[Rfam]
RNA sequence: CCAUAUAGCAUUUGUACCCAGAAUCUGUCCCCAGACAUUGCACCUGGCACUGUUAGGUCAGAAUUAUAAUGGUUU
Numbered sequence: 001c002c003a004u005a006u007a008g009c010a011u012u013u014g015u016a017c018c019c020a021g022a023a024u025c026u027g028u029c030c031c032c033a034g035a036c037a038u039u040g041c042a043c044c045u046g047g048c049a050c051u052g053u054u055a056g057g058u059c060a061g062a063a064u065u066a067u068a069a070u071g072g073u074u075u
Stems, first nucleotide, its partner, number of pairs: 005053004018047004024035004
RNA: U1A polyadenylation inhibition element (PIE)